Shown here is a 176-nucleotide RNA sequence from Clostridiaceae bacterium AF18-31LB, a member of the family "Lysine riboswitch aptamer".
[Rfam]
Nucleotides: 176
Stems, first nucleotide, its partner, number of pairs: 007170005017083004023077003033068001035066001037064003087116004091111006117143002120140008145161007
Number, partner (000 for none) and nucleotide at each position: 001000a002000a003000a004000a005000g006000a007170g008169a009168u010167a011166g012000a013000g014000g015000u016000c017083g018082c019081g020080u021000g022000a023077a024076u025075c026000a027000u028000c029000a030000g031000u032000a033068g034000a035066c036000g037064g038063u039062c040000a041000g042000a043000u044000g045000c046000a047000g048000c049000a050000g051000a052000g053000g054000c055000a056000c057000u058000g059000g060000a061000a062039g063038a064037c065000a066035g067000c068033c069000g070000a071000a072000a073000g074000g075025g076024g077023u078000a079000a080020g081019c082018g083017c084000c085000g086000a087116a088115a089114g090113g091111c092110c093109g094108g095107a096106u097000a098000u099000u100000c101000u102000g103000c104000a105000a106096g107095u108094c109093c110092g111091g112000a113090u114089c115088u116087u117143g118142g119000g120140c121139a122138u123137g124136u125135g126134g127133u128000c129000a130000a131000u132000a133127a134126c135125c136124a137123u138122a139121u140120g141000a142118c143117u144000g145161u146160c147159a148158u149157c150156u151155g152000g153000a154000a155151c156150a157149g158148a159147u160146g161145g162000a163000g164000c165000g166011c167010u168009a169008u170007c171000c172000g173000g174000a175000c176000a

Its family is annotated with lysine biosynthetic process in the Gene Ontology.